[Rfam]
RNA sequence: CGGGUACUGCCUGGUGCGAGCCUCAGCAUUAUCCCUGAGCCGAUUACAGAUCCUUGGGGGCUGUCCCUGGCCGGGCCCUGGCCCGAUCCACAUGGUUCCCACCUGACGUUUGGGCGUCAGAGGAUAUUCCUGGCCAACGGCCUUGGCGGUCCCGUC
Numbered sequence: 001c002g003g004g005u006a007c008u009g010c011c012u013g014g015u016g017c018g019a020g021c022c023u024c025a026g027c028a029u030u031a032u033c034c035c036u037g038a039g040c041c042g043a044u045u046a047c048a049g050a051u052c053c054u055u056g057g058g059g060g061c062u063g064u065c066c067c068u069g070g071c072c073g074g075g076c077c078c079u080g081g082c083c084c085g086a087u088c089c090a091c092a093u094g095g096u097u098c099c100c101a102c103c104u105g106a107c108g109u110u111u112g113g114g115c116g117u118c119a120g121a122g123g124a125u126a127u128u129c130c131u132g133g134c135c136a137a138c139g140g141c142c143u144u145g146g147c148g149g150u151c152c153c154g155u156c
Stems, first nucleotide, its partner, number of pairs: 003153002006150006013142003017139002032124003035120004039115003056100003060096005069089002072085005
RNA: 6S / SsrS RNA